[Rfam]
RNA: Enterococcus sRNA 68 (Lacto-3 RNA)
Organism: Pediococcus cellicola
RNA sequence: UGCGAUGAGUCGAGCAGAAUCAGGCAACUUCGGUUGUUUCACUUUCGAGUGACUAGUGAUUUUUCUUGGAACGGGAUGUGUUUUUCCACCGGAUUUUUGUGGAACAUCUGAUGGCGCAUGUGUGAACCGUG
Numbered sequence: 001u002g003c004g005a006u007g008a009g010u011c012g013a014g015c016a017g018a019a020u021c022a023g024g025c026a027a028c029u030u031c032g033g034u035u036g037u038u039u040c041a042c043u044u045u046c047g048a049g050u051g052a053c054u055a056g057u058g059a060u061u062u063u064u065c066u067u068g069g070a071a072c073g074g075g076a077u078g079u080g081u082u083u084u085u086c087c088a089c090c091g092g093a094u095u096u097u098u099g100u101g102g103a104a105c106a107u108c109u110g111a112u113g114g115c116g117c118a119u120g121u122g123u124g125a126a127c128c129g130u131g
Base pairs, nucleotide, nucleotide: 018061019060020059021058022057023038024037025036026035027034028033039052040051041050042049075108076107077106078105079104085103086102087101088100089099117131118130119129120128121126